Overview: Histone 3' UTR stem-loop: a 46-nucleotide RNA sequence from Canis lupus. Rfam's curators write: The mRNAs of metazoan histone genes lack a poly-A tail. 3' end processing occurs at a site between a highly conserved stem-loop (modelled by this family) and a purine rich region around 20 nts downstream (the histone downstream element, or HDE). The stem-loop is bound by a 31 kDa stem-loop binding protein (SLBP - also termed the histone hairpin binding protein, or HBP). Together with U7 snRNA binding of the HDE, SLBP binding nucleate s the formation of the processing complex. The histone 3' UTR stem-loop is also involved in nucleocytoplasmic transport of the mRNA, and in stability regulation and translation efficiency in the cytoplasm. By type it is a cis-regulatory element. The family's consensus secondary structure is taken from published work.
RNA sequence: ACAACGGCUCUUUUAAGAGCCACCCAUAUUCUCAAAGAGAGCUGUU
Numbered sequence: 001a002c003a004a005c006g007g008c009u010c011u012u013u014u015a016a017g018a019g020c021c022a023c024c025c026a027u028a029u030u031c032u033c034a035a036a037g038a039g040a041g042c043u044g045u046u
Stems, first nucleotide, its partner, number of pairs: 006021006
A search with the family's covariance model found it, with a score of 40 bits. Lineage of the source: Eukaryota > Bilateria > Theria > Laurasiatheria > Canis lupus.